[Rfam]
RNA sequence: GCCCCCGUAGCCCAAUGGAUAAGGCGUUCGCUUCCUAAGCGAAAGAUUGCGGGUUCGAGUCCCGCCGGAGGUA
Numbered sequence: 001g002c003c004c005c006c007g008u009a010g011c012c013c014a015a016u017g018g019a020u021a022a023g024g025c026g027u028u029c030g031c032u033u034c035c036u037a038a039g040c041g042a043a044a045g046a047u048u049g050c051g052g053g054u055u056c057g058a059g060u061c062c063c064g065c066c067g068g069a070g071g072u073a
Stems, first nucleotide, its partner, number of pairs: 001072003005068003010025003027043005049065005
tRNA: a 73-nucleotide sequence from Trypanosoma brucei. Rfam 15.1 lists 5,335,975 matches to the family in 14,413 species. Taxonomically the source falls in Trypanozoon (Eukaryota, Euglenozoa, Kinetoplastea, Trypanosomatidae). Rfam links the family to the GO term triplet codon-amino acid adaptor activity. Transfer RNA (tRNA) molecules are approximately 80 nucleotides in length. Their secondary structure includes four short double-helical elements and three loops (D, anti-codon, and T loops). Further hydrogen bonds mediate the characteristic L-shaped molecular structure. tRNAs have two regions of fundamental functional importance: the anti-codon, which is responsible for specific mRNA codon recognition, and the 3' end, to which the tRNAs corresponding amino acid is attached (by aminoacyl-tRNA synthetases). tRNAs cope with the degeneracy of the genetic code in two manners: having more than one tRNA (with a specific anti-codon) for a particular amino acid; and 'wobble' base-pairing, i.e. permitting non-standard base-pairing at the 3rd anti-codon position. Rfam classes the family as a transfer RNA. The base pairs follow the family's consensus structure, which is taken from published work. Rfam's curators put it in the seed alignment.